About this RNA:
Rfam assigns this 264-nucleotide sequence from Pseudocoprococcus catus to the family "Bacterial large signal recognition particle RNA". The base pairs follow the family's consensus structure, which is taken from published work. A search with the family's covariance model found it, with a score of 182 bits. NCBI's taxonomy places the organism under Bacteria, Bacillati, Lachnospirales, Lachnospiraceae, Pseudocoprococcus. The family's RNA type in Rfam is non-coding RNA gene.
[Rfam]
RNA sequence: CCGUGCAGCCGGGGAGAUAGCGGUGCCCUGUACCUGCAACCCGCUACAGCAGGGGUGAUGUUUCAGCCGAGGGUCUUUGAUCUGUAGAGCAGCCCGCUGUAAGUAGCGUUGACGUUUGGGUCUCGCGCAACGGGAACCAGUGAACCGUGUCAGGUCAGGAAUGGAGCAGCACUAAGCUGGACCUUCCGUGUGCCGUGAGGGCGCCUGGGCUGAGCCAACUGCAGCGGUAACGUUUAUGGGUCGGAUUCGAAGCGAAACGCACGG
Numbered sequence: 001c002c003g004u005g006c007a008g009c010c011g012g013g014g015a016g017a018u019a020g021c022g023g024u025g026c027c028c029u030g031u032a033c034c035u036g037c038a039a040c041c042c043g044c045u046a047c048a049g050c051a052g053g054g055g056u057g058a059u060g061u062u063u064c065a066g067c068c069g070a071g072g073g074u075c076u077u078u079g080a081u082c083u084g085u086a087g088a089g090c091a092g093c094c095c096g097c098u099g100u101a102a103g104u105a106g107c108g109u110u111g112a113c114g115u116u117u118g119g120g121u122c123u124c125g126c127g128c129a130a131c132g133g134g135a136a137c138c139a140g141u142g143a144a145c146c147g148u149g150u151c152a153g154g155u156c157a158g159g160a161a162u163g164g165a166g167c168a169g170c171a172c173u174a175a176g177c178u179g180g181a182c183c184u185u186c187c188g189u190g191u192g193c194c195g196u197g198a199g200g201g202c203g204c205c206u207g208g209g210c211u212g213a214g215c216c217a218a219c220u221g222c223a224g225c226g227g228u229a230a231c232g233u234u235u236a237u238g239g240g241u242c243g244g245a246u247u248c249g250a251a252g253c254g255a256a257a258c259g260c261a262c263g264g
Base pairs, nucleotide, nucleotide: 001264002263003262004261005260006259008056009055010054011029012028013027014026016024018022033053034052035051036050037049062257063256066253067252071248072247073246074245075244079242080241081240082239083238084237085236086235087234088233095226096225097224098223099222100221103219104218106215107214114210115209116208117207118206119205120204121203122199123198124197125196126195127194128190129189131188132187133186134185135184137180138179139178140177141176147172148171149170150169155164156163157162